[Rfam]
The record is a 68-nucleotide RNA sequence, which matches "ASdes TB sRNA" in Rfam.
Rfam classes the family as a small RNA.
The match comes from Rfam's covariance-model search (61 bits).
RNA sequence: AGCACGAUCGGAUCGGCGCUGCGGGUGACGACGAGGUAGUCGCGGAUCGCGGUGCCGUGCCGGGCCUC
Numbered sequence: 001a002g003c004a005c006g007a008u009c010g011g012a013u014c015g016g017c018g019c020u021g022c023g024g025g026u027g028a029c030g031a032c033g034a035g036g037u038a039g040u041c042g043c044g045g046a047u048c049g050c051g052g053u054g055c056c057g058u059g060c061c062g063g064g065c066c067u068c
Base pairs, nucleotide, nucleotide: 005062006061008059013028016026017025035056036055037054038053040052041051042050043049044048